[Rfam]
RNA: Bacterial large signal recognition particle RNA
Organism: Thermanaerosceptrum fracticalcis
RNA sequence: CCGUGCUAGACGGGGAGGUAGCGGCGCCCUGUACCCGCAAUCCGCUAUAGCGGGGUUGAAUUCCUGUUUUGAGGAAUAAUCUUGUGAGGUCUGGCUUUAGCAAGUAGUGAUGAAAACCGGGUCCUGCGCAACGGAAAUUUGUGAACCCCGUCAGGUCCGGAAGGAAGCAGCGGUAAGCAAAACCUUUCGUGUGCCGCAGGGCGGCCUGGUUCGAGCCAACUACUAGAGUAACGCUUGGAAGGUUAUAUUCGACAACAGGUGCACGG
Numbered sequence: 001c002c003g004u005g006c007u008a009g010a011c012g013g014g015g016a017g018g019u020a021g022c023g024g025c026g027c028c029c030u031g032u033a034c035c036c037g038c039a040a041u042c043c044g045c046u047a048u049a050g051c052g053g054g055g056u057u058g059a060a061u062u063c064c065u066g067u068u069u070u071g072a073g074g075a076a077u078a079a080u081c082u083u084g085u086g087a088g089g090u091c092u093g094g095c096u097u098u099a100g101c102a103a104g105u106a107g108u109g110a111u112g113a114a115a116a117c118c119g120g121g122u123c124c125u126g127c128g129c130a131a132c133g134g135a136a137a138u139u140u141g142u143g144a145a146c147c148c149c150g151u152c153a154g155g156u157c158c159g160g161a162a163g164g165a166a167g168c169a170g171c172g173g174u175a176a177g178c179a180a181a182a183c184c185u186u187u188c189g190u191g192u193g194c195c196g197c198a199g200g201g202c203g204g205c206c207u208g209g210u211u212c213g214a215g216c217c218a219a220c221u222a223c224u225a226g227a228g229u230a231a232c233g234c235u236u237g238g239a240a241g242g243u244u245a246u247a248u249u250c251g252a253c254a255a256c257a258g259g260u261g262c263a264c265g266g
Base pairs, nucleotide, nucleotide: 001266002265003264004263005262006261009057010056011055012030013029014028015027017025019023034054035053036052037051038050063259064258065257066256067255068254073250074249075248079243080242081241082240083239085237086236087235088234092230093229096227097226098225099224100223104220105219107216108215115211116210117209118208119207120206121205122204123200124199125198126197127196128195129191130190132189133188134187135186136185138181139180140179141178142177148173149172150171151170156165157164158163